[Rfam]
RNA: Small nucleolar RNA SNORA71
Organism: Nannospalax galili
RNA sequence: CCCUGCAUUCGUAAGUGACCAUGGAGUGCCCAGGCCCUGGUUAUUGGUAGUGCAGGCAGAGGAAACGUGGAAAGAACAUCCUGUGUUUGGAAGGUCUACACCCUGCCUUCCAGUGCUGGGAGCUUUCCCACA
Dot-bracket structure: .((((((((....((((((((.((...........))))))))))...))))))))..........(.((((((............((((((((...........)))))))).........)))))))...